[Rfam]
Shown here is an 87-nucleotide sequence from Aegilops tauschii, a member of the family "MIR1120/MIR1122 microRNA precursor family".
The literature on the family includes a 2007 paper in Genome Biol by Yao et al., "Cloning and characterization of microRNAs from wheat (Triticum aestivum L.)".
RNA sequence: AUACUACCUCUGUACCAAAAUAUAAGAUGUUUUUGUAGACUAAACUAGCCUACAAAAACGUCUUAUAUUUUGAUACGGAGGGAGUAG
Numbered sequence: 001a002u003a004c005u006a007c008c009u010c011u012g013u014a015c016c017a018a019a020a021u022a023u024a025a026g027a028u029g030u031u032u033u034u035g036u037a038g039a040c041u042a043a044a045c046u047a048g049c050c051u052a053c054a055a056a057a058a059c060g061u062c063u064u065a066u067a068u069u070u071u072g073a074u075a076c077g078g079a080g081g082g083a084g085u086a087g
Stems, first nucleotide, its partner, number of pairs: 003085003007081005013075002016072002019069020040048002

The match comes from Rfam's covariance-model search (89 bits).